[Rfam]
RNA sequence: UGGGAGAUAACAUGCUUCUUUAUAUGCCCAUAUGAACUACAUGGUUAUGGAAUGUAAGGAAGUGUGUGGUUUCUCU
Numbered sequence: 001u002g003g004g005a006g007a008u009a010a011c012a013u014g015c016u017u018c019u020u021u022a023u024a025u026g027c028c029c030a031u032a033u034g035a036a037c038u039a040c041a042u043g044g045u046u047a048u049g050g051a052a053u054g055u056a057a058g059g060a061a062g063u064g065u066g067u068g069g070u071u072u073c074u075c076u
Base pairs, nucleotide, nucleotide: 007070008069010067011066012065013064014063015062016061017060018059019058020057021056022055023054024053025052028050029049030048031047032046